[Rfam]
RNA: Ribosomal protein L10 leader
RNA sequence: GUUAAAUUAACUAUUAUACCGUAGACAGUAGGUGUUCCUUACGGACUUAAUUUCCUGCCGAGGUGUGUUUAUAAAUCUGUUACAUUUCGUAAUGAACGGAUCUAUUAUGCCUCCAUGUCUACUGACGUUGGAGGCUUUUAUAUUCCUUA
Number, nucleotide and partner (000 for none) at each position: 001g000002u000003u000004a000005a000006a000007u000008u000009a000010a000011c000012u000013a000014u000015u000016a000017u000018a000019c000020c000021g000022u000023a000024g000025a000026c000027a000028g058029u057030a056031g055032g054033u000034g046035u045036u044037c000038c000039u000040u000041a000042c000043g000044g036045a035046c034047u000048u000049a000050a000051u000052u000053u000054c032055c031056u030057g029058c028059c000060g000061a000062g000063g000064u000065g000066u000067g000068u000069u000070u000071a000072u000073a000074a000075a000076u000077c000078u000079g000080u000081u000082a000083c000084a000085u000086u000087u000088c000089g000090u000091a000092a000093u000094g000095a000096a000097c000098g000099g000100a000101u000102c000103u000104a000105u000106u000107a000108u000109g000110c134111c133112u132113c131114c130115a129116u127117g126118u125119c124120u000121a000122c000123u000124g119125a118126c117127g116128u000129u115130g114131g113132a112133g111134g110135c000136u000137u000138u000139u000140a000141u000142a000143u000144u000145c000146c000147u000148u000149a000